[Rfam]
RNA: Small nucleolar RNA R12
Organism: Hibiscus trionum
RNA sequence: AAGAGGAUGAUGAAAACAAUCAGACGGAUUCCCAUUGAUUAUCCUAUGAGAACAUUACCAGCUACUUCUGACUCUU
Number, nucleotide and partner (000 for none) at each position: 001a076002a075003g074004a073005g072006g000007a000008u000009g000010a000011u000012g000013a000014a000015a000016a000017c000018a000019a000020u000021c000022a000023g000024a000025c000026g000027g000028a000029u000030u000031c000032c000033c000034a000035u000036u000037g000038a000039u000040u000041a000042u000043c000044c000045u000046a000047u000048g000049a000050g000051a000052a000053c000054a000055u000056u000057a000058c000059c000060a000061g000062c000063u000064a000065c000066u000067u000068c000069u000070g000071a000072c005073u004074c003075u002076u001